Description: Rfam assigns this 358-nucleotide part of an RNA from uncultured marine group III euryarchaeote AD1000-40-D7 to the family "Archaeal small subunit ribosomal RNA". Pairs were carried over by alignment from the consensus structure, which is taken from published work. Rfam 15.1 lists 709 matches to the family in 491 species. Clan: SSU clan. Rfam's curators put it in the seed alignment.
RNA sequence: GGCCUAAAGCGUUCGUAGCCGGUUUGGUAAAUUCUUGGGUAAAUCGUACCGCUUAACGGUGCGGAUUCCGGGGACACUACCAGACUUGAGACCGGGGGAGAUCAGAGGUACUUGCGGGGGAGCGGUGAAAUGUUGUAAUCCCGCAGGGACCACCAGUGGCGAAGGCGUCUGAUCAGAACGGCUCUGACGGUGAGGAACGAAACCCUGGGGCGCAAACGGGAUUAGAUACCCCGGUAGUCCAGGGCGUAAACGCUGCUGACUUGGUGUUGGGGAUCCUACGAGGAUGUCCAGUGCUGGCGCGAAGGUAUUAAGUCAGCCGCCUGGGGAGUACGGUCGCAAGACUGAAACUUAAAGGAAU
Numbered sequence: 001g002g003c004c005u006a007a008a009g010c011g012u013u014c015g016u017a018g019c020c021g022g023u024u025u026g027g028u029a030a031a032u033u034c035u036u037g038g039g040u041a042a043a044u045c046g047u048a049c050c051g052c053u054u055a056a057c058g059g060u061g062c063g064g065a066u067u068c069c070g071g072g073g074a075c076a077c078u079a080c081c082a083g084a085c086u087u088g089a090g091a092c093c094g095g096g097g098g099a100g101a102u103c104a105g106a107g108g109u110a111c112u113u114g115c116g117g118g119g120g121a122g123c124g125g126u127g128a129a130a131u132g133u134u135g136u137a138a139u140c141c142c143g144c145a146g147g148g149a150c151c152a153c154c155a156g157u158g159g160c161g162a163a164g165g166c167g168u169c170u171g172a173u174c175a176g177a178a179c180g181g182c183u184c185u186g187a188c189g190g191u192g193a194g195g196a197a198c199g200a201a202a203c204c205c206u207g208g209g210g211c212g213c214a215a216a217c218g219g220g221a222u223u224a225g226a227u228a229c230c231c232c233g234g235u236a237g238u239c240c241a242g243g244g245c246g247u248a249a250a251c252g253c254u255g256c257u258g259a260c261u262u263g264g265u266g267u268u269g270g271g272g273a274u275c276c277u278a279c280g281a282g283g284a285u286g287u288c289c290a291g292u293g294c295u296g297g298c299g300c301g302a303a304g305g306u307a308u309u310a311a312g313u314c315a316g317c318c319g320c321c322u323g324g325g326g327a328g329u330a331c332g333g334u335c336g337c338a339a340g341a342c343u344g345a346a347a348c349u350u351a352a353a354g355g356a357a358u
Stems, first nucleotide, its partner, number of pairs: 001321003009318001011198004016192001018191003022085007030078001032074008045063007089185003092181003100174007107151002111147008122133003159166002203244006212238002217233004255317006263295009273285004299306002323350003332343004